[Rfam]
RNA sequence: GUUGCAUUUACAGUAGUUGCUGGACGCAGCACAAGACUACCUUUUGACAGAUCUUGUGCGUGUGACAGCGGCUAUCGUAAUAUGCGCAAAGCAGCUCU
Numbered sequence: 001g002u003u004g005c006a007u008u009u010a011c012a013g014u015a016g017u018u019g020c021u022g023g024a025c026g027c028a029g030c031a032c033a034a035g036a037c038u039a040c041c042u043u044u045u046g047a048c049a050g051a052u053c054u055u056g057u058g059c060g061u062g063u064g065a066c067a068g069c070g071g072c073u074a075u076c077g078u079a080a081u082a083u084g085c086g087c088a089a090a091g092c093a094g095c096u097c098u
Stems, first nucleotide, its partner, number of pairs: 005084002008080004015073008025062002029059005035053002
This 98-nucleotide RNA from Stegodyphus mimosarum belongs to the Rfam family "mir-210 microRNA precursor family". The match comes from Rfam's covariance-model search (52 bits). NCBI's taxonomy places the organism under Eukaryota, Opisthokonta, Eumetazoa, Eresoidea, Stegodyphus. Pairs were carried over by alignment from the consensus structure, which was predicted with WAR. The family has 26 seed sequences and 790 matches in Rfam 15.1. A reference for the family is Cai et al. (2005), "Kaposi's sarcoma-associated herpesvirus expresses an array of viral microRNAs in latently infected cells", Proc Natl Acad Sci U S A.